[Rfam]
Shown here is a 76-nucleotide RNA from Solanum commersonii, a member of the family "Small nucleolar RNA R21". The base pairs follow the family's consensus structure, which was predicted with PFOLD. Its family is annotated with RNA processing and nucleolus in the Gene Ontology. Rfam classes the family as a C/D-box small nucleolar RNA. The literature on the family includes a 2001 paper in J Mol Biol by Barneche et al., "Identification of 66 box C/D snoRNAs in Arabidopsis thaliana: extensive gene duplications generated multiple isoforms predicting new ribosomal RNA 2'-O-methylation sites".
Nucleotides: 076
Stems, first nucleotide, its partner, number of pairs: 001076006
Number, partner (000 for none) and nucleotide at each position: 001076u002075a003074u004073c005072g006071c007000u008000a009000u010000g011000a012000c013000g014000a015000u016000u017000a018000a019000a020000a021000a022000u023000a024000u025000a026000a027000a028000a029000g030000u031000a032000g033000u034000g035000g036000a037000c038000u039000g040000a041000a042000u043000a044000a045000u046000a047000c048000a049000u050000u051000g052000a053000u054000g055000a056000g057000u058000a059000a060000a061000u062000u063000g064000a065000u066000u067000c068000u069000g070000a071006g072005c073004g074003a075002u076001g

The source organism's lineage runs through Eukaryota, Embryophyta, asterids, Solanales and Solanum.